[Rfam]
The family of this 176-nucleotide RNA sequence from Lacticaseibacillus paracasei is "Lysine riboswitch aptamer". A search with the family's covariance model found it, with a score of 93 bits.

RNA sequence: AUAACGAUUAGAGGUUGCAUCUGUCAUGAAUCCUAACCGCAAUGGCCUGAACGCCAGAUGCGCGGUUGCAAAAGGGGUGGAUGCCGAAAUGCCGGAUUUGUUCAGAAAUCCGACAUUGGGCCAGUUGGACAACAUCCGCUGGACUGUCGCGAACAUCGCGGGGCGCUAAUGAAUCG
Numbered sequence: 001a002u003a004a005c006g007a008u009u010a011g012a013g014g015u016u017g018c019a020u021c022u023g024u025c026a027u028g029a030a031u032c033c034u035a036a037c038c039g040c041a042a043u044g045g046c047c048u049g050a051a052c053g054c055c056a057g058a059u060g061c062g063c064g065g066u067u068g069c070a071a072a073a074g075g076g077g078u079g080g081a082u083g084c085c086g087a088a089a090u091g092c093c094g095g096a097u098u099u100g101u102u103c104a105g106a107a108a109u110c111c112g113a114c115a116u117u118g119g120g121c122c123a124g125u126u127g128g129a130c131a132a133c134a135u136c137c138g139c140u141g142g143a144c145u146g147u148c149g150c151g152a153a154c155a156u157c158g159c160g161g162g163g164c165g166c167u168a169a170u171g172a173a174u175c176g
Stems, first nucleotide, its partner, number of pairs: 007170005017084009034068007088117004093112007118145002121142005127136002147161006
Source information
The source organism's lineage runs through Bacteria, Bacilli, Lactobacillaceae, Lacticaseibacillus and Lacticaseibacillus paracasei.